RNA sequence: GGCUGUGCGUCCACAAUCCUUGGAUCCGCAGCAUCCAAUGCUGACUCUGCCGCAGGGUACACUAGUGGACACACAGUC
Numbered sequence: 001g002g003c004u005g006u007g008c009g010u011c012c013a014c015a016a017u018c019c020u021u022g023g024a025u026c027c028g029c030a031g032c033a034u035c036c037a038a039u040g041c042u043g044a045c046u047c048u049g050c051c052g053c054a055g056g057g058u059a060c061a062c063u064a065g066u067g068g069a070c071a072c073a074c075a076g077u078c
Base pairs, nucleotide, nucleotide: 001078002077003076004075005074006073007072009070010069011068012067013066020038021037022036023035024034025033044058045055046054
Shown here is a 78-nucleotide RNA from Drosophila miranda, a member of the family "bZIP non canonical Hac1/Xbp1 intron". Rfam's curators write: bZIP intron RNA is a non-canonical intron that was first reported in HAC1 gene in yeast and XBP1 gene in Metazoa. NCBI's taxonomy places the organism under Eukaryota, Protostomia, Panarthropoda, Drosophilidae, Sophophora.